The record is a 417-nucleotide RNA sequence from Lewinella sp. 4G2, which matches "Bacterial RNase P class A" in Rfam. Gene Ontology terms of the family: ribonuclease P activity, dimeric ribonuclease P complex and tRNA processing. Rfam describes the family as follows. Ribonuclease P (RNase P) is a ubiquitous endoribonuclease, found in archaea, bacteria and eukarya as well as chloroplasts and mitochondria. Its best characterised activity is the generation of mature 5'-ends of tRNAs by cleaving the 5'-leader elements of precursor-tRNAs. Cellular RNase Ps are ribonucleoproteins. RNA from bacterial RNase Ps retains its catalytic activity in the absence of the protein subunit, i.e. it is a ribozyme. Isolated eukaryotic and archaeal RNase P RNA has not been shown to retain its catalytic function, but is still essential for the catalytic activity of the holoenzyme. Although the archaeal and eukaryotic holoenzyme s have a much greater protein content than the bacterial ones, the RNA cores from all the three lineages are homologous -- helices corresponding to P1, P2, P3, P4, and P10/11 are common to all cellular RNase P RNAs. Yet, there is considerable sequence variation, particularly among the eukaryotic RNAs. Identified in Yersinia as Ysr151/RnpB. NCBI's taxonomy places the organism under Bacteria, Pseudomonadati, Saprospiria, Saprospirales, Lewinella. Pairs were carried over by alignment from the consensus structure, which is taken from published work. The family's RNA type in Rfam is ribozyme.
RNA sequence: ACCCCGCCCUACCCCACCGCUUGCUGCUCGUUGGCAAGAGGAAAGUCCGGGCAACAUAGGGCACCACGCCGGCUAACGGCCGGGGGCCGAGGAGGAAUCCGAAGGCUACGGAAAGUGCCACAGAAAGCUAUACCGCCUCCAAGGACUACCUAGGCCGCGGAGGUAAGGGUGAAAACGUGCGGUAAGAGCGCACGGCCGGCCGCGGUAACGUGGUUGGUGGGUAAACCCCGUGGGUUGAAAUACCACGCAGUGUUGUUGGCUCCGGCCUACCGUCGGCUCCGGCGGUCCCGACUCGUUCGGGUGCAAUACGGGUAGGUAGAUCGAGCCGUCGGGCAACUGGCGGCCUAGAUAAAUGGUGGGGCUCUCCUCCUUCGCAGGGGGGGACGACAGAACCCGGCUUAUCGGGGCGGGGGCGCU
Numbered sequence: 001a002c003c004c005c006g007c008c009c010u011a012c013c014c015c016a017c018c019g020c021u022u023g024c025u026g027c028u029c030g031u032u033g034g035c036a037a038g039a040g041g042a043a044a045g046u047c048c049g050g051g052c053a054a055c056a057u058a059g060g061g062c063a064c065c066a067c068g069c070c071g072g073c074u075a076a077c078g079g080c081c082g083g084g085g086g087c088c089g090a091g092g093a094g095g096a097a098u099c100c101g102a103a104g105g106c107u108a109c110g111g112a113a114a115g116u117g118c119c120a121c122a123g124a125a126a127g128c129u130a131u132a133c134c135g136c137c138u139c140c141a142a143g144g145a146c147u148a149c150c151u152a153g154g155c156c157g158c159g160g161a162g163g164u165a166a167g168g169g170u171g172a173a174a175a176c177g178u179g180c181g182g183u184a185a186g187a188g189c190g191c192a193c194g195g196c197c198g199g200c201c202g203c204g205g206u207a208a209c210g211u212g213g214u215u216g217g218u219g220g221g222u223a224a225a226c227c228c229c230g231u232g233g234g235u236u237g238a239a240a241u242a243c244c245a246c247g248c249a250g251u252g253u254u255g256u257u258g259g260c261u262c263c264g265g266c267c268u269a270c271c272g273u274c275g276g277c278u279c280c281g282g283c284g285g286u287c288c289c290g291a292c293u294c295g296u297u298c299g300g301g302u303g304c305a306a307u308a309c310g311g312g313u314a315g316g317u318a319g320a321u322c323g324a325g326c327c328g329u330c331g332g333g334c335a336a337c338u339g340g341c342g343g344c345c346u347a348g349a350u351a352a353a354u355g356g357u358g359g360g361g362c363u364c365u366c367c368u369c370c371u372u373c374g375c376a377g378g379g380g381g382g383g384a385c386g387a388c389a390g391a392a393c394c395c396g397g398c399u400u401a402u403c404g405g406g407g408c409g410g411g412g413g414c415g416c417u
Stems, first nucleotide, its partner, number of pairs: 002412009011402001012361007020038007043400003047397005052237004059296001061294001064233005069083005084109001085107004110228002115226002117222003133168002135164006143156001176194006197216008241318004250309006287301005325344008